RNA: c-di-AMP riboswitch aptamer (ydaO/yuaA leader)
RNA sequence: AGUCAAAAAUUGCCGAAUUUCCAUUUUGGAAAACGGGGGAAAUCAUUACCGGGUGAAUUGAUUCUGCAAUCAAGAAUCAUAGGGAACCUCAACCGAACCCUCAAGCUAACCUCGUAGGCACCGGGAGGCGUAAUG
Numbered sequence: 001a002g003u004c005a006a007a008a009a010u011u012g013c014c015g016a017a018u019u020u021c022c023a024u025u026u027u028g029g030a031a032a033a034c035g036g037g038g039g040a041a042a043u044c045a046u047u048a049c050c051g052g053g054u055g056a057a058u059u060g061a062u063u064c065u066g067c068a069a070u071c072a073a074g075a076a077u078c079a080u081a082g083g084g085a086a087c088c089u090c091a092a093c094c095g096a097a098c099c100c101u102c103a104a105g106c107u108a109a110c111c112u113c114g115u116a117g118g119c120a121c122c123g124g125g126a127g128g129c130g131u132a133a134u135g
Stems, first nucleotide, its partner, number of pairs: 011120004018032003033115006051100003059079007082094002